[Rfam]
RNA sequence: AUGCACUAGAUACUAACCUGACUGUCUGCUGCCCAGUAGUUUUUGUACUGGUGCACUUCAGUGACUUUUGGGUCCAGAACGGUGCUAUAAAACCCUGAGCCCUGAGAUUUAAGCACUGAGUGGGAAGUCACUACCUCAGAUGUUAUUACUCAGGGACACACAA
Numbered sequence: 001a002u003g004c005a006c007u008a009g010a011u012a013c014u015a016a017c018c019u020g021a022c023u024g025u026c027u028g029c030u031g032c033c034c035a036g037u038a039g040u041u042u043u044u045g046u047a048c049u050g051g052u053g054c055a056c057u058u059c060a061g062u063g064a065c066u067u068u069u070g071g072g073u074c075c076a077g078a079a080c081g082g083u084g085c086u087a088u089a090a091a092a093c094c095c096u097g098a099g100c101c102c103u104g105a106g107a108u109u110u111a112a113g114c115a116c117u118g119a120g121u122g123g124g125a126a127g128u129c130a131c132u133a134c135c136u137c138a139g140a141u142g143u144u145a146u147u148a149c150u151c152a153g154g155g156a157c158a159c160a161c162a163a
Stems, first nucleotide, its partner, number of pairs: 003085005016073003020069002024065003028057001030055003033051001035049004099157001101155001119132005134154003139151002142149002
RNA: Small Cajal body specific RNA 1